[Rfam]
RNA sequence: CGGGCGCUACCACCUGUGGAGCGCACCGGAGGCUACUUUAAAUUUAAUUACAUCCAGGCCGCUUGGAUCUCCAGGGACCGAGACGGGUGC
Numbered sequence: 001c002g003g004g005c006g007c008u009a010c011c012a013c014c015u016g017u018g019g020a021g022c023g024c025a026c027c028g029g030a031g032g033c034u035a036c037u038u039u040a041a042a043u044u045u046a047a048u049u050a051c052a053u054c055c056a057g058g059c060c061g062c063u064u065g066g067a068u069c070u071c072c073a074g075g076g077a078c079c080g081a082g083a084c085g086g087g088u089g090c
Base pairs, nucleotide, nucleotide: 001028002027003026004024005023006022007021008020010019011018059086060085061084062082063081064080065079066078068077069076070075